[Rfam]
Annotation:
Rfam assigns this 316-nucleotide RNA sequence from Helicobacter pylori to the family "Bacterial RNase P class A". Ribonuclease P (RNase P) is a ubiquitous endoribonuclease, found in archaea, bacteria and eukarya as well as chloroplasts and mitochondria. The family's consensus secondary structure is taken from published work. Lineage of the source: Bacteria > Campylobacterota > Campylobacterales > Helicobacteraceae > Helicobacter.
RNA sequence: GCAUUAGAAGAUGGCCGCUAUUUUAGAAUAGAGGAAAGUCCGGGCUACAUUAGACAAAAUUCCAUCUAACGGAUGGCUAGCGCAAGCUAAGGGAAAGUGCCACAGAAAGCAAACCGCCUUUUUAAGGUAAGGGUGAAAGGGUGGGGUAAGAGCCCACCAGAGCUAAAGCAAUUUAGCUUGUUUGGGCAAACCCAAUUUGUAGCAAGAAGCGCAUGGUAAGUCUAAAUCGAUACACGCUUCGCUUGAGGAAUAUUGCAAAAUAUUUCCCAGAUAAAUGGCCAUCCAUUGACAGAACCCGGCUUAUUCUAAUGCUCAA
Numbered sequence: 001g002c003a004u005u006a007g008a009a010g011a012u013g014g015c016c017g018c019u020a021u022u023u024u025a026g027a028a029u030a031g032a033g034g035a036a037a038g039u040c041c042g043g044g045c046u047a048c049a050u051u052a053g054a055c056a057a058a059a060u061u062c063c064a065u066c067u068a069a070c071g072g073a074u075g076g077c078u079a080g081c082g083c084a085a086g087c088u089a090a091g092g093g094a095a096a097g098u099g100c101c102a103c104a105g106a107a108a109g110c111a112a113a114c115c116g117c118c119u120u121u122u123u124a125a126g127g128u129a130a131g132g133g134u135g136a137a138a139g140g141g142u143g144g145g146g147u148a149a150g151a152g153c154c155c156a157c158c159a160g161a162g163c164u165a166a167a168g169c170a171a172u173u174u175a176g177c178u179u180g181u182u183u184g185g186g187c188a189a190a191c192c193c194a195a196u197u198u199g200u201a202g203c204a205a206g207a208a209g210c211g212c213a214u215g216g217u218a219a220g221u222c223u224a225a226a227u228c229g230a231u232a233c234a235c236g237c238u239u240c241g242c243u244u245g246a247g248g249a250a251u252a253u254u255g256c257a258a259a260a261u262a263u264u265u266c267c268c269a270g271a272u273a274a275a276u277g278g279c280c281a282u283c284c285a286u287u288g289a290c291a292g293a294a295c296c297c298g299g300c301u302u303a304u305u306c307u308a309a310u311g312c313u314c315a316a
Stems, first nucleotide, its partner, number of pairs: 001312009010283007018031005036302003040299005045202004052227001057198005062076005077091001078089004092193002097191002099187003114132002116128005140158006159181001160179008206240006219231001221229001247266008
Dot-bracket structure: ((((((((((((((((.(((((....)))))....[[[.[[[[[((((...[....((((((((((.....)))))(((((....)))).)((...(((((............(((((((...)))))..)).......((((((.......))))))(((((((((....)))))))).)...)))..)))))))))))))...((((((.......(.(.....].).)...))))))......((((((((....))))))))..........)))))))...........]]]]]]]].)))))))))....